[Rfam]
RNA: U12 minor spliceosomal RNA
RNA sequence: AUGCCUUAAACUAAUGAGUAAGGAAAAUAACGAGCCUGGUGAGAGCUAGGCUCCCUGGCUUAAGCUUCCAGGAAGAAUUUCUGAGGGGGUACAGGUCGCCCCUGGGUGACCCGCCUACUUUAGCGGGAUGCCCAGGUUUAGUUGUGAUCUGCCCU
Numbered sequence: 001a002u003g004c005c006u007u008a009a010a011c012u013a014a015u016g017a018g019u020a021a022g023g024a025a026a027a028u029a030a031c032g033a034g035c036c037u038g039g040u041g042a043g044a045g046c047u048a049g050g051c052u053c054c055c056u057g058g059c060u061u062a063a064g065c066u067u068c069c070a071g072g073a074a075g076a077a078u079u080u081c082u083g084a085g086g087g088g089g090u091a092c093a094g095g096u097c098g099c100c101c102c103u104g105g106g107u108g109a110c111c112c113g114c115c116u117a118c119u120u121u122a123g124c125g126g127g128a129u130g131c132c133c134a135g136g137u138u139u140a141g142u143u144g145u146g147a148u149c150u151g152c153c154c155u
Stems, first nucleotide, its partner, number of pairs: 004023005032053008054072005086155005093150007101136002104133005110127005